[Rfam]
RNA sequence: GGUCAAGUCACUGGAGGCAGCGGUUCAUCGAUCUCUUCCUGGAAACUUUUGUAGUUAAAAAUCGCGAAAAGACAUGAAUCGAUCGAUAAACCUCUGCAUCCAGCGCUCUGCGC
Numbered sequence: 001g002g003u004c005a006a007g008u009c010a011c012u013g014g015a016g017g018c019a020g021c022g023g024u025u026c027a028u029c030g031a032u033c034u035c036u037u038c039c040u041g042g043a044a045a046c047u048u049u050u051g052u053a054g055u056u057a058a059a060a061a062u063c064g065c066g067a068a069a070a071g072a073c074a075u076g077a078a079u080c081g082a083u084c085g086a087u088a089a090a091c092c093u094c095u096g097c098a099u100c101c102a103g104c105g106c107u108c109u110g111c112g113c
Base pairs, nucleotide, nucleotide: 013101014100015099018096019095020094022092023091024090025089027087028086029085030084031083032082033081036078037077038076

This 113-nucleotide RNA from Tripterygium wilfordii belongs to the Rfam family "MIR162_1 microRNA precursor family".